Notes:
Guanidine-I riboswitch aptamer: a 102-nucleotide sequence from Acidomonas methanolica. The match comes from Rfam's covariance-model search (81 bits). Rfam's curators write: This family represents a conserved RNA structure found upstream of the ykkC and yxkD genes in Bacillus subtilis and related genes in other bacteria. The organism belongs to Acidomonas methanolica, within Bacteria.
Nucleotides: 102
Base pairs, nucleotide, nucleotide: 007059008058009057010056011055012054015049016048020046021045022043024039025038026037027036028035060078061077062076063075064074065073066072080100086098087097088096
Number, partner (000 for none) and nucleotide at each position: 001000c002000c003000a004000u005000u006000g007059g008058c009057g010056c011055g012054c013000u014000a015049g016048g017000g018000u019000u020046c021045c022043g023000c024039u025038c026037c027036g028035a029000c030000u031000u032000g033000c034000g035028u036027c037026g038025g039024a040000u041000g042000u043022c044000u045021g046020g047000u048016c049015c050000g051000a052000g053000a054012g055011c056010g057009c058008g059007c060078g061077g062076c063075c064074u065073c066072g067000g068000u069000g070000u071000u072066c073065g074064g075063g076062g077061u078060u079000a080100c081000a082000c083000g084000g085000c086098g087097g088096g089000a090000c091000a092000a093000a094000a095000g096088c097087c098086c099000g100080g101000g102000a